RNA sequence: ACUGAGGGGCACUAGGGUUCCGAUCGAUGGUUGACUGCCAAGCCAUCUUUGUCUGGUCCAAGAGUGCCCCGGCCUCGCAAGAGGCUCCACGGAGGGACAAAAGCCCGGGAGAG
Number, nucleotide and partner (000 for none) at each position: 001a000002c000003u000004g000005a000006g000007g069008g068009g067010c066011a065012c064013u000014a000015g059016g058017g000018u000019u000020c056021c055022g053023a050024u000025c000026g047027a046028u045029g044030g043031u042032u041033g000034a000035c000036u000037g000038c000039c000040a000041a032042g031043c030044c029045a028046u027047c026048u000049u000050u023051g000052u000053c022054u000055g021056g020057u000058c016059c015060a000061a000062g000063a000064g012065u011066g010067c009068c008069c007070c000071g086072g085073c084074c083075u082076c081077g000078c000079a000080a000081g076082a075083g074084g073085c072086u071087c000088c108089a000090c111091g000092g000093a000094g106095g105096g104097a000098c000099a000100a000101a000102a000103g000104c096105c095106c094107g000108g088109g000110a000111g090112a000113g000
Description:
The record is a 113-nucleotide sequence from Aquabacterium sp., which matches "Guanidine-I riboswitch aptamer" in Rfam. It scores 72 bits against the family's covariance model. Its family is annotated with regulation of gene expression in the Gene Ontology.